[Rfam]
Nucleotides: 098
Base pairs, nucleotide, nucleotide: 004092005091006090007089008088009085010084011083012082013081014080017076018075020073021072022071024066025065026064027063034059035058036057037056042051043050044049
Number, partner (000 for none) and nucleotide at each position: 001000g002000g003000a004092g005091g006090c007089c008088g009085g010084u011083c012082g013081c014080g015000g016000a017076c018075g019000g020073g021072c022071g023000c024066c025065u026064c027063g028000c029000c030000a031000a032000c033000c034059c035058g036057g037056u038000c039000a040000g041000g042051g043050c044049c045000g046000g047000a048000a049044g050043g051042c052000a053000g054000c055000a056037g057036c058035c059034g060000c061000a062000a063027c064026g065025a066024g067000u068000u069000u070000c071022c072021g073020c074000a075018c076017g077000g078000g079000u080014c081013g082012c083011g084010g085009u086000u087000c088008c089007g090006g091005u092004c093000u094000c095000c096000c097000a098000c
Annotation
The family of this 98-nucleotide RNA from Acidiphilium cryptum is "Bacterial small signal recognition particle RNA". A reference for the family is Rosenblad et al. (2003), "SRPDB: Signal Recognition Particle Database", Nucleic Acids Res. By type it is a non-coding RNA gene. From the family's description: The signal recognition particle (SRP) is a universally conserved ribonucleoprotein involved in the co-translational targeting of proteins to membranes. The family's consensus secondary structure is taken from published work.